[Rfam]
RNA: small nucleolar RNA snoR126
Organism: Castanea mollissima
RNA sequence: AGGCUGUGAUGACGAACAACAUUUCUCGAUUCUGAUAUUAUAUGUACUGUUUUUAGUAUUGGACCAGAGCAAUUAUAUUGCUCUCUGAUGACUUCAUUUAUGCGUGUCUGAGCCUU
Numbered sequence: 001a002g003g004c005u006g007u008g009a010u011g012a013c014g015a016a017c018a019a020c021a022u023u024u025c026u027c028g029a030u031u032c033u034g035a036u037a038u039u040a041u042a043u044g045u046a047c048u049g050u051u052u053u054u055a056g057u058a059u060u061g062g063a064c065c066a067g068a069g070c071a072a073u074u075a076u077a078u079u080g081c082u083c084u085c086u087g088a089u090g091a092c093u094u095c096a097u098u099u100a101u102g103c104g105u106g107u108c109u110g111a112g113c114c115u116u
Stems, first nucleotide, its partner, number of pairs: 001115004